Record summary
This 78-nucleotide RNA from Streptomyces sp. NRRL WC-3618 belongs to the Rfam family "ASpks TB sRNA". The family's consensus secondary structure is taken from published work.

[Rfam]
RNA sequence: CUUCAACGAGCCGAGCCACAGCGGCUCCUGGCCCUCGGGCCGGUCCUUGCCGUACGUGGCGAUGAGGGCCUGGGCCUC
Numbered sequence: 001c002u003u004c005a006a007c008g009a010g011c012c013g014a015g016c017c018a019c020a021g022c023g024g025c026u027c028c029u030g031g032c033c034c035u036c037g038g039g040c041c042g043g044u045c046c047u048u049g050c051c052g053u054a055c056g057u058g059g060c061g062a063u064g065a066g067g068g069c070c071u072g073g074g075c076c077u078c
Stems, first nucleotide, its partner, number of pairs: 014026004034074003041068001047062002050059003